[Rfam]
This 109-nucleotide sequence from Labrus bergylta belongs to the Rfam family "Vault RNA". This family of RNAs are found as part of the enigmatic vault ribonucleoprotein complex. It scores 63 bits against the family's covariance model. The source organism's lineage runs through Eukaryota, Eumetazoa, Craniata, Actinopteri and Labrus. A reference for the family is Stadler et al. (2009), "Evolution of Vault RNAs", Mol Biol Evol.
RNA sequence: GCGGAGGUUUAGCUCAGUGGUUACAUCACAACUUCCUUUGUUUGGGUUACUCUACUCCAGCGGUCCGCGGACUGCGGGGUUCGAACCACGGGCGCUGUCCUCCGCUUUU
Numbered sequence: 001g002c003g004g005a006g007g008u009u010u011a012g013c014u015c016a017g018u019g020g021u022u023a024c025a026u027c028a029c030a031a032c033u034u035c036c037u038u039u040g041u042u043u044g045g046g047u048u049a050c051u052c053u054a055c056u057c058c059a060g061c062g063g064u065c066c067g068c069g070g071a072c073u074g075c076g077g078g079g080u081u082c083g084a085a086c087c088a089c090g091g092g093c094g095c096u097g098u099c100c101u102c103c104g105c106u107u108u109u
Stems, first nucleotide, its partner, number of pairs: 002104006012093004017089004026084002